[Rfam]
RNA sequence: CUGCCCAGUGAACACCAAGAGUGCCUUAGUUCCUGGGCUCUGACUCUGUGCUAGAGCCAUGUCUGUUCUUUUCCUCUAGAGUUAAAGGGCUAUUUGUCCUUUACAAUGUACUCAGAAAGUCAGAACAGCA
Dot-bracket structure: ..((.(((.(..((((.((.(.((....)).))).))...))..)))).)).(((((.......))))).....(((..(.((((((((.......))))))).).)......)))..............

A member of the RNA family "Small nucleolar RNA SNORA22" from Sus scrofa, 130 nucleotides long. The family's consensus secondary structure was predicted with RNAfold. By type it is an H/ACA-box small nucleolar RNA. Rfam's curators write: ACA22 is a member of the H/ACA class of snoRNA that guide the sites of modification of uridines to pseudouridines.